[Rfam]
RNA: Small nucleolar RNA Z13/snr52
Nucleotides: 097
Base pairs, nucleotide, nucleotide: 002097003096021074022073023072024071
Number, partner (000 for none) and nucleotide at each position: 001000g002097a003096c004000c005000g006000a007000u008000a009000u010000g011000a012000u013000g014000a015000g016000a017000u018000a019000u020000u021074c022073g023072g024071a025000u026000g027000u028000a029000a030000a031000u032000u033000c034000a035000c036000a037000g038000a039000c040000c041000u042000g043000u044000u045000c046000u047000g048000a049000a050000a051000g052000c053000g054000c055000a056000a057000g058000c059000u060000g061000u062000g063000u064000g065000g066000a067000u068000a069000u070000g071024u072023c073022c074021g075000u076000u077000g078000c079000c080000u081000u082000c083000c084000u085000u086000c087000u088000g089000a090000c091000c092000c093000c094000a095000g096003g097002u